[Rfam]
RNA sequence: GAGUGCUCCGAGAUGCGGUGAGAUUCCGCACCUGUGGUCAAAGCCCACAAACCAGCGCAAGCUGGCCUGGCAGGUGAAAUUCCUGCGCAGACCGUACAGUCGGGAUGGGAGGCAGCACCC
Numbered sequence: 001g002a003g004u005g006c007u008c009c010g011a012g013a014u015g016c017g018g019u020g021a022g023a024u025u026c027c028g029c030a031c032c033u034g035u036g037g038u039c040a041a042a043g044c045c046c047a048c049a050a051a052c053c054a055g056c057g058c059a060a061g062c063u064g065g066c067c068u069g070g071c072a073g074g075u076g077a078a079a080u081u082c083c084u085g086c087g088c089a090g091a092c093c094g095u096a097c098a099g100u101c102g103g104g105a106u107g108g109g110a111g112g113c114a115g116c117a118c119c120c
Base pairs, nucleotide, nucleotide: 003118004117005116006115007114008112009111016028017027018026030100031099032090033089034048035047036046037045043088044087052065053064070086071085072084073083074082092103093102094101
Source information: Shown here is a 120-nucleotide RNA from Agrococcus casei, a member of the family "FMN riboswitch aptamer (RFN element)". The base pairs follow the family's consensus structure, which is taken from published work. Rfam links the family to the GO term FMN binding. Lineage of the source: Bacteria > Actinomycetota > Actinomycetes > Microbacteriaceae > Agrococcus casei.